[Rfam]
About this RNA
The family of this 34-nucleotide sequence is "Prion pseudoknot". This family represents a predicted pseudoknot structure found in prion protein mRNA. It has been suggested that the family has a possible effect in prion protein translation. It is annotated as a cis-regulatory element.
RNA sequence: CCACGGCGGCGGCUGGGGCCAUGGCGGCGGCUGG
Dot-bracket structure: (((.((............)).)))..........
Numbered sequence: 001c002c003a004c005g006g007c008g009g010c011g012g013c014u015g016g017g018g019c020c021a022u023g024g025c026g027g028c029g030g031c032u033g034g
Stems, first nucleotide, its partner, number of pairs: 001024003005020002